[Rfam]
RNA: Group II catalytic intron D1-D4-6
RNA sequence: AAAGUCCCCCACGAUGAAGGGCAAGCAACCCACAUCGGCCCCAAGCCGUGCGCAGGCAACCGUGAGGGUGUCGGCGAAGCGUCGGCAGGGGAGCGUGCAGGCCAGCCAUUGAGCCGCGAAAGUCCAAUAUUCCGGGUGCCGACGGCGUUGACGUUCUGGAAGGCAACACGGAUGAGCGCGUUAUGCGAGCGCUCAGCCGACCCGGCGUGGUCUGAGACCC
Numbered sequence: 001a002a003a004g005u006c007c008c009c010c011a012c013g014a015u016g017a018a019g020g021g022c023a024a025g026c027a028a029c030c031c032a033c034a035u036c037g038g039c040c041c042c043a044a045g046c047c048g049u050g051c052g053c054a055g056g057c058a059a060c061c062g063u064g065a066g067g068g069u070g071u072c073g074g075c076g077a078a079g080c081g082u083c084g085g086c087a088g089g090g091g092a093g094c095g096u097g098c099a100g101g102c103c104a105g106c107c108a109u110u111g112a113g114c115c116g117c118g119a120a121a122g123u124c125c126a127a128u129a130u131u132c133c134g135g136g137u138g139c140c141g142a143c144g145g146c147g148u149u150g151a152c153g154u155u156c157u158g159g160a161a162g163g164c165a166a167c168a169c170g171g172a173u174g175a176g177c178g179c180g181u182u183a184u185g186c187g188a189g190c191g192c193u194c195a196g197c198c199g200a201c202c203c204g205g206c207g208u209g210g211u212c213u214g215a216g217a218c219c220c
Base pairs, nucleotide, nucleotide: 012037013036014035015034016033019031020030021029025186026185039091040090041089042088045086046085047084048083049081050080051076052075053074055072056071057070058069060067061066110214111212113211114210115209116208117207118206132205133204134203135202136201137200138164139163140162143158144157145156169199170198171197173195174194175193176192177191178190179189